[Rfam]
RNA sequence: UGGGGUGUAGCCAAGUGGUAAGGCAACGGGUUUUGGUCCCGUCAUGCGGGGGUUCAAAUCCUCCCACCCCAG
Numbered sequence: 001u002g003g004g005g006u007g008u009a010g011c012c013a014a015g016u017g018g019u020a021a022g023g024c025a026a027c028g029g030g031u032u033u034u035g036g037u038c039c040c041g042u043c044a045u046g047c048g049g050g051g052g053u054u055c056a057a058a059u060c061c062u063c064c065c066a067c068c069c070c071a072g
Base pairs, nucleotide, nucleotide: 001071002070003069004068005067006066007065010024011023012022026042027041028040029039030038048064049063050062051061052060
This 72-nucleotide sequence from Desulfohalobium retbaense belongs to the Rfam family "tRNA". The organism belongs to Desulfohalobium retbaense, within Bacteria. Its family is annotated with triplet codon-amino acid adaptor activity in the Gene Ontology. The match comes from Rfam's covariance-model search (64 bits). A reference for the family is Hou (1993), "The tertiary structure of tRNA and the development of the genetic code", Trends Biochem Sci. Pairs were carried over by alignment from the consensus structure, which is taken from published work.